[Rfam]
RNA sequence: CUCUCUGAUGAUGAUCAAACAAAUACUUUCGUUCUUCCUAAUUGCUAUAUGCACUGAGGAAACAGAUUUGGAGACCUGAACUGAAGAGAG
Numbered sequence: 001c002u003c004u005c006u007g008a009u010g011a012u013g014a015u016c017a018a019a020c021a022a023a024u025a026c027u028u029u030c031g032u033u034c035u036u037c038c039u040a041a042u043u044g045c046u047a048u049a050u051g052c053a054c055u056g057a058g059g060a061a062a063c064a065g066a067u068u069u070g071g072a073g074a075c076c077u078g079a080a081c082u083g084a085a086g087a088g089a090g
Stems, first nucleotide, its partner, number of pairs: 003088004